[Rfam]
RNA: mir-9195 microRNA precursor family
RNA sequence: AGAGGCCCUCCGUGGCCAGGGCUGGACGCUUGCCUCAUCGCCGCGGCGACAAAGCAAGCAUUCUGCCAGGCCGCUCAUGCUGCCCAC
Numbered sequence: 001a002g003a004g005g006c007c008c009u010c011c012g013u014g015g016c017c018a019g020g021g022c023u024g025g026a027c028g029c030u031u032g033c034c035u036c037a038u039c040g041c042c043g044c045g046g047c048g049a050c051a052a053a054g055c056a057a058g059c060a061u062u063c064u065g066c067c068a069g070g071c072c073g074c075u076c077a078u079g080c081u082g083c084c085c086a087c
Stems, first nucleotide, its partner, number of pairs: 004084003012074006020067003024063003028059006038049004